[Rfam]
RNA sequence: UCACCGAAAGGGCACAGCAGGGGCAACCCUGUGUCGCAAAGCUACCAUCCCUGAGCGGGGAUAGAGGGGUUAUCGAA
Numbered sequence: 001u002c003a004c005c006g007a008a009a010g011g012g013c014a015c016a017g018c019a020g021g022g023g024c025a026a027c028c029c030u031g032u033g034u035c036g037c038a039a040a041g042c043u044a045c046c047a048u049c050c051c052u053g054a055g056c057g058g059g060g061a062u063a064g065a066g067g068g069g070u071u072a073u074c075g076a077a
Stems, first nucleotide, its partner, number of pairs: 012037002017032006040071004045067002047062006

Shown here is a 77-nucleotide RNA from Pelobacter propionicus, a member of the family "c-di-GMP-I riboswitch aptamer".
Rfam links the family to the GO term cyclic-di-GMP binding.
Lineage of the source: Bacteria > Pseudomonadati > Desulfuromonadales > Pelobacter > Pelobacter propionicus.